[Rfam]
This 196-nucleotide RNA from Torulaspora globosa belongs to the Rfam family "Small nucleolar RNA snR43".
The source organism's lineage runs through Eukaryota, Dikarya, Saccharomycetes, Saccharomycetales and Torulaspora.
Its Rfam clan is "SNORA9 clan".
A search with the family's covariance model found it, with a score of 153 bits.
The literature on the family includes a 1996 paper in Cell by Balakin et al., "The RNA world of the nucleolus: two major families of small RNAs defined by different box elements with related functions".
RNA sequence: UACUCCUGUUUCUGCCCCAUAUUUCUUUCUCUUCCAUGAGAUAAUGGGUUCUGGUGAUGGAGAAGAAAAAGCCAGAGAACGUCUUUGCACAUUUUUUGAUACAUCCGUGUUUAAGAUGUUGUCUGGAUCGUGUGAAUGCAUCAUUCGACUUGUCGAGCCAUUGCAGCUCGACAGGAUUUGGUGUUUCUCUAUAUAU
Numbered sequence: 001u002a003c004u005c006c007u008g009u010u011u012c013u014g015c016c017c018c019a020u021a022u023u024u025c026u027u028u029c030u031c032u033u034c035c036a037u038g039a040g041a042u043a044a045u046g047g048g049u050u051c052u053g054g055u056g057a058u059g060g061a062g063a064a065g066a067a068a069a070a071g072c073c074a075g076a077g078a079a080c081g082u083c084u085u086u087g088c089a090c091a092u093u094u095u096u097u098g099a100u101a102c103a104u105c106c107g108u109g110u111u112u113a114a115g116a117u118g119u120u121g122u123c124u125g126g127a128u129c130g131u132g133u134g135a136a137u138g139c140a141u142c143a144u145u146c147g148a149c150u151u152g153u154c155g156a157g158c159c160a161u162u163g164c165a166g167c168u169c170g171a172c173a174g175g176a177u178u179u180g181g182u183g184u185u186u187c188u189c190u191a192u193a194u195a196u
Stems, first nucleotide, its partner, number of pairs: 003062004016048004020043006072126005078120008087110004132189001134187002138184005149175005156168001157164002